Rfam assigns this 108-nucleotide sequence from Firmicutes bacterium CAG:240 to the family "TPP riboswitch aptamer (THI element)".
It scores 68 bits against the family's covariance model.
Taxonomically the source falls in Bacillota (Bacteria, Bacillati).

RNA sequence: AUGAAAAAACAGGGGAGCUUGUGCUGACAGGCUGAGAGGAAGGACAUACCUUCGACCCUUUAACCUGAUGCGGAUAAUGCCGCCGGAGGAAGUCAUCAACGAUUUUUU
Number, nucleotide and partner (000 for none) at each position: 001a000002u000003g000004a000005a000006a096007a000008a000009a093010c092011a059012g058013g057014g056015g000016a000017g032018c031019u030020u029021g028022u000023g000024c000025u000026g000027a000028c021029a020030g019031g018032c017033u000034g000035a000036g000037a000038g000039g053040a052041a051042g050043g049044a000045c000046a000047u000048a000049c043050c042051u041052u040053c039054g000055a000056c014057c013058c012059u011060u000061u000062a000063a000064c089065c088066u087067g000068a000069u000070g083071c082072g081073g080074a000075u000076a000077a000078u000079g000080c073081c072082g071083c070084c000085g000086g000087a066088g065089g064090a000091a000092g010093u009094c000095a000096u006097c000098a000099a000100c000101g000102a000103u000104u000105u000106u000107u000108u000